RNA sequence: UAAUCAAUUAAGAGGCAACUCUUAACUGGCCAUUUAGGGAAAAGCCGAGAGGUUCAAGCUUAAAGGGCAGAAAGAUCAGCUGAGUAGCGCUAAAAUGGUUGAUCGGGAGGUUCGGCGGUAGCGCCUACAACGACGAACCAA
Numbered sequence: 001u002a003a004u005c006a007a008u009u010a011a012g013a014g015g016c017a018a019c020u021c022u023u024a025a026c027u028g029g030c031c032a033u034u035u036a037g038g039g040a041a042a043a044g045c046c047g048a049g050a051g052g053u054u055c056a057a058g059c060u061u062a063a064a065g066g067g068c069a070g071a072a073a074g075a076u077c078a079g080c081u082g083a084g085u086a087g088c089g090c091u092a093a094a095a096u097g098g099u100u101g102a103u104c105g106g107g108a109g110g111u112u113c114g115g116c117g118g119u120a121g122c123g124c125c126u127a128c129a130a131c132g133a134c135g136a137a138c139c140a141a
Base pairs, nucleotide, nucleotide: 008025009024010023011022012021013020014019026070027069028068030067031066033064034063035062036061037060038059043054044053045052046051074104075103076102077101078100079099080098081097087124088123089122090121091120109139110138111137112136113135114134116132117131
RNA: IMES-2 RNA motif